[Rfam]
RNA: mir-36 microRNA precursor family
RNA sequence: UGUGAGCCAGGUCCUGUUCCGGUUUUUUCCGUGGUGAUAACGCAUCCAAAAGUCUCUAUCACCGGGAGAAAAACUGGAGUAGGACCUGUGACUCAU
Numbered sequence: 001u002g003u004g005a006g007c008c009a010g011g012u013c014c015u016g017u018u019c020c021g022g023u024u025u026u027u028u029c030c031g032u033g034g035u036g037a038u039a040a041c042g043c044a045u046c047c048a049a050a051a052g053u054c055u056c057u058a059u060c061a062c063c064g065g066g067a068g069a070a071a072a073a074c075u076g077g078a079g080u081a082g083g084a085c086c087u088g089u090g091a092c093u094c095a096u
Stems, first nucleotide, its partner, number of pairs: 010086007018078003021074001023072008032064001034062006